[Rfam]
RNA sequence: UCAUUCCACUAGGGGAGCGAAAGCUGAGAGACCGCAAGGUCGACCCUUGGAACCUGUUGGGGUAAUACCUGCGUAGGGAAGUGGCUAUUGGUUUUC
Numbered sequence: 001u002c003a004u005u006c007c008a009c010u011a012g013g014g015g016a017g018c019g020a021a022a023g024c025u026g027a028g029a030g031a032c033c034g035c036a037a038g039g040u041c042g043a044c045c046c047u048u049g050g051a052a053c054c055u056g057u058u059g060g061g062g063u064a065a066u067a068c069c070u071g072c073g074u075a076g077g078g079a080a081g082u083g084g085c086u087a088u089u090g091g092u093u094u095u096c
Base pairs, nucleotide, nucleotide: 006084007083008082009081010080011047012046013045014044017024018023031040032039033038053077054076055075056074058071059070060069061068
A member of the RNA family "TPP riboswitch aptamer (THI element)" from Propionispira arboris, 96 nucleotides long. NCBI's taxonomy places the organism under Bacteria, Bacillota, Selenomonadales, Selenomonadaceae, Propionispira.